[Rfam]
RNA sequence: GUGGGCUACGGGGACAUGCACCCGGUGACCGUCGGCGGCAAGAUCGUGGGGUCCCUGUGCGCGAUCGCCGGCGUGCUGACCAUCGCCCUUCCCGUGCCCGUCAUCGUGUCCAAC
Numbered sequence: 001g002u003g004g005g006c007u008a009c010g011g012g013g014a015c016a017u018g019c020a021c022c023c024g025g026u027g028a029c030c031g032u033c034g035g036c037g038g039c040a041a042g043a044u045c046g047u048g049g050g051g052u053c054c055c056u057g058u059g060c061g062c063g064a065u066c067g068c069c070g071g072c073g074u075g076c077u078g079a080c081c082a083u084c085g086c087c088c089u090u091c092c093c094g095u096g097c098c099c100g101u102c103a104u105c106g107u108g109u110c111c112a113a114c
Base pairs, nucleotide, nucleotide: 001114002113004111005110007108008107009106010105011104013102014101015100018097019096020095021094037077038076039075040074050062
Potassium channel RNA editing signal: a 114-nucleotide RNA from Muraenolepis orangiensis.
On this family, see Bhalla et al., Nat Struct Mol Biol 2004: "Control of human potassium channel inactivation by editing of a small mRNA hairpin".
NCBI's taxonomy places the organism under Eukaryota, Gnathostomata, Teleostei, Osteoglossocephalai, Muraenolepis.
It is annotated as a cis-regulatory element.
Rfam's curators write: This family represents a group of sequences related to the human potassium channel Kv1.1 hairpin element which directs the efficient modification of an adenosine to inosine by an adenosine deaminase acting on RNA (ADAR).
The family's consensus secondary structure is taken from published work.